[Rfam]
RNA: c-di-AMP riboswitch aptamer (ydaO/yuaA leader)
RNA sequence: GCGCGGCCUCCGCCGAGUCCGGUGUGCCGCAGCGGCAGCCGGAGCCGGGGACCCAACCGAGAACUCUGGGGUGAAUCGGCCCGACUCCCUCCGCGGAGACGGCCGUAGGGCAACCCUUCCGAUGUACCCGCCCGAACCCGACAGCUAACCCGGUAGGCGGAGCACGGAAGGAGU
Numbered sequence: 001g002c003g004c005g006g007c008c009u010c011c012g013c014c015g016a017g018u019c020c021g022g023u024g025u026g027c028c029g030c031a032g033c034g035g036c037a038g039c040c041g042g043a044g045c046c047g048g049g050g051a052c053c054c055a056a057c058c059g060a061g062a063a064c065u066c067u068g069g070g071g072u073g074a075a076u077c078g079g080c081c082c083g084a085c086u087c088c089c090u091c092c093g094c095g096g097a098g099a100c101g102g103c104c105g106u107a108g109g110g111c112a113a114c115c116c117u118u119c120c121g122a123u124g125u126a127c128c129c130g131c132c133c134g135a136a137c138c139c140g141a142c143a144g145c146u147a148a149c150c151c152g153g154u155a156g157g158c159g160g161a162g163c164a165c166g167g168a169a170g171g172a173g174u
Stems, first nucleotide, its partner, number of pairs: 011159004018043006044154006054068002069139003077105004108133004